[Rfam]
RNA sequence: GAAGACAAGUAGAGGCACCCGCUUCUCGCCUGAUCGACACAUAGGAUAUGUAGUUGGCAGGUUACCAUGUAAGAGUAUUAACUUGGAGACGUGUGGGUGCAAUGUGUACCGACACUUUUUUUAAUGG
Numbered sequence: 001g002a003a004g005a006c007a008a009g010u011a012g013a014g015g016c017a018c019c020c021g022c023u024u025c026u027c028g029c030c031u032g033a034u035c036g037a038c039a040c041a042u043a044g045g046a047u048a049u050g051u052a053g054u055u056g057g058c059a060g061g062u063u064a065c066c067a068u069g070u071a072a073g074a075g076u077a078u079u080a081a082c083u084u085g086g087a088g089a090c091g092u093g094u095g096g097g098u099g100c101a102a103u104g105u106g107u108a109c110c111g112a113c114a115c116u117u118u119u120u121u122u123a124a125u126g127g
Base pairs, nucleotide, nucleotide: 011026012025013024014023015022016021028062029061030060036055037054038053039051040050041049042048092114093113094112096110097109098108099107100106101105
RNA: Ribosomal protein L20 leader